[Rfam]
RNA sequence: ACGUCGGGACGGCCCGACGUCGGGACGGCCCGACGUCGGGACGGCCUGA
Numbered sequence: 001a002c003g004u005c006g007g008g009a010c011g012g013c014c015c016g017a018c019g020u021c022g023g024g025a026c027g028g029c030c031c032g033a034c035g036u037c038g039g040g041a042c043g044g045c046c047u048g049a
Base pairs, nucleotide, nucleotide: 001020002019003018004017005016006015007014008013036049037048038047039046040045
The record is a 49-nucleotide sequence from Acer saccharum, which matches "Guanidine-II riboswitch aptamer (mini-ykkC)" in Rfam. The match comes from Rfam's covariance-model search (36 bits). Pairs were carried over by alignment from the consensus structure, which is taken from published work.